[Rfam]
RNA sequence: CCAGGUGUAAGCUCGUUCCAGGGAUCACAAUCAGGUAGAAUAUUCUUACCUCGUCUAAUCCUUGGGAAGGUCUGAGACAAAGGCCGUGUGGACGUUCGAAAUGGGUGCCUGUGUAAAAACAGGGGGUCGAUUACCAGGAACGGGUUCUUGUAUCGGCUGUGCAAAGGACGACAUCGCUUCGCCGGAGGCUGUGUUUGAUGCGUUACACCGAUUCAUAGCUUGAAAAGGGUCCCUGGCCAGCUUCAGAAAGCUCAAUGAACGAGGCGGAGGCAAAGGACUUGUCCAACCUUCGUAACUCAAUUCAGACUACUCUACAUCUGA
Numbered sequence: 001c002c003a004g005g006u007g008u009a010a011g012c013u014c015g016u017u018c019c020a021g022g023g024a025u026c027a028c029a030a031u032c033a034g035g036u037a038g039a040a041u042a043u044u045c046u047u048a049c050c051u052c053g054u055c056u057a058a059u060c061c062u063u064g065g066g067a068a069g070g071u072c073u074g075a076g077a078c079a080a081a082g083g084c085c086g087u088g089u090g091g092a093c094g095u096u097c098g099a100a101a102u103g104g105g106u107g108c109c110u111g112u113g114u115a116a117a118a119a120c121a122g123g124g125g126g127u128c129g130a131u132u133a134c135c136a137g138g139a140a141c142g143g144g145u146u147c148u149u150g151u152a153u154c155g156g157c158u159g160u161g162c163a164a165a166g167g168a169c170g171a172c173a174u175c176g177c178u179u180c181g182c183c184g185g186a187g188g189c190u191g192u193g194u195u196u197g198a199u200g201c202g203u204u205a206c207a208c209c210g211a212u213u214c215a216u217a218g219c220u221u222g223a224a225a226a227g228g229g230u231c232c233c234u235g236g237c238c239a240g241c242u243u244c245a246g247a248a249a250g251c252u253c254a255a256u257g258a259a260c261g262a263g264g265c266g267g268a269g270g271c272a273a274a275g276g277a278c279u280u281g282u283c284c285a286a287c288c289u290u291c292g293u294a295a296c297u298c299a300a301u302u303c304a305g306a307c308u309a310c311u312c313u314a315c316a317u318c319u320g321a
Base pairs, nucleotide, nucleotide: 002320003319004318007315008314009313012263013262014261015260016259017258018257020063021062022061023060024059033051034050035049036048037047038045072305073304074303075302076301082238083237084236085235093107094106095105096104097103108123109122110121111120112119124234125233126232129231130230131229132228144219145218146217264293265292266291267290268289269288270287